This 231-nucleotide RNA sequence from Bacillus anthracis belongs to the Rfam family "T-box leader". The source organism's lineage runs through Bacteria, Bacillota, Bacilli, Bacillaceae and Bacillus anthracis.
RNA sequence: AUAUAACCGUUGAUAGAGAAGAGUAAAUGAGAUACACAUGGAAAGAGAAGAAAUGUCUUAGGCUGAAAACAUUUCUACAUGGUGACUGAUUGAAUGACACUCUAGAGGUUUCAACUUGAACGGCAUAUACGCUUAGUAGGGAUGAACGCACAUUUAAGCGUUAUUAAAAAAGUGGAAGCAUACGUGCUUCAAUUAGGGUGGCACCACGGGUAUAAUACUCUCGUCCCUACU
Numbered sequence: 001a002u003a004u005a006a007c008c009g010u011u012g013a014u015a016g017a018g019a020a021g022a023g024u025a026a027a028u029g030a031g032a033u034a035c036a037c038a039u040g041g042a043a044a045g046a047g048a049a050g051a052a053a054u055g056u057c058u059u060a061g062g063c064u065g066a067a068a069a070c071a072u073u074u075c076u077a078c079a080u081g082g083u084g085a086c087u088g089a090u091u092g093a094a095u096g097a098c099a100c101u102c103u104a105g106a107g108g109u110u111u112c113a114a115c116u117u118g119a120a121c122g123g124c125a126u127a128u129a130c131g132c133u134u135a136g137u138a139g140g141g142a143u144g145a146a147c148g149c150a151c152a153u154u155u156a157a158g159c160g161u162u163a164u165u166a167a168a169a170a171a172g173u174g175g176a177a178g179c180a181u182a183c184g185u186g187c188u189u190c191a192a193u194u195a196g197g198g199u200g201g202c203a204c205c206a207c208g209g210g211u212a213u214a215a216u217a218c219u220c221u222c223g224u225c226c227c228u229a230c231u
Stems, first nucleotide, its partner, number of pairs: 007108002015103004026091003030087002038080003049076008111145003115141003147160003175190006195228004206224005
The sequence is in the family's curated seed alignment. Rfam describes the family as follows. Uncharged tRNA acts as the effector for transcription antitermination of genes in the T-box leader family. T-boxes are found upstream of many aminoacyl-tRNA synthetase genes and some amino acid biosynthetic genes usually in Gram-positive bacteria. The anticodon of a specific tRNA base pairs to a specifier sequence within the T-box motif, and the NCCA acceptor tail of the tRNA base pairs to a conserved bulge in the T-box antiterminator hairpin.